[Rfam]
Nucleotides: 087
Stems, first nucleotide, its partner, number of pairs: 001087007
Number, partner (000 for none) and nucleotide at each position: 001087c002086u003085u004084g005083g006082g007081a008000g009000a010000u011000g012000a013000u014000g015000a016000u017000a018000u019000c020000a021000c022000a023000g024000a025000u026000u027000u028000g029000a030000a031000u032000c033000a034000a035000g036000a037000g038000a039000u040000c041000a042000c043000c044000c045000a046000a047000a048000u049000c050000c051000g052000u053000g054000c055000u056000g057000a058000a059000u060000g061000a062000u063000u064000u065000u066000u067000g068000c069000a070000c071000g072000u073000c074000a075000g076000u077000c078000u079000g080000a081007u082006c083005c084004c085003a086002a087001g